[Rfam]
RNA: mir-181 microRNA precursor family
RNA sequence: UCGCCCCGGUGAACAUUCAACGCUGUCGGUGAGUUUUGAGCUAAAUUGACAAAGACCAUCGACCGUUGAUUGUACCCUGUGGCCAA
Numbered sequence: 001u002c003g004c005c006c007c008g009g010u011g012a013a014c015a016u017u018c019a020a021c022g023c024u025g026u027c028g029g030u031g032a033g034u035u036u037u038g039a040g041c042u043a044a045a046u047u048g049a050c051a052a053a054g055a056c057c058a059u060c061g062a063c064c065g066u067u068g069a070u071u072g073u074a075c076c077c078u079g080u081g082g083c084c085a086a
Stems, first nucleotide, its partner, number of pairs: 001086001003084001004082002007079002014072002017069006025063007033056004